[Rfam]
RNA: Betaproteobacteria toxic small RNA
Organism: Chitinimonas sp. BJB300
RNA sequence: UGUCUCCUCCAUCCUCCUUCUUUGGUGGAAUUACGCGCAACCCAUAACUCGGUUGCGCUUUUUUU
Number, nucleotide and partner (000 for none) at each position: 001u000002g000003u000004c000005u000006c000007c000008u029009c028010c027011a026012u025013c024014c000015u000016c000017c000018u000019u000020c000021u000022u000023u000024g013025g012026u011027g010028g009029a008030a000031u000032u000033a000034c000035g058036c057037g056038c055039a054040a053041c052042c051043c000044a000045u000046a000047a000048c000049u000050c000051g042052g041053u040054u039055g038056c037057g036058c035059u000060u000061u000062u000063u000064u000065u000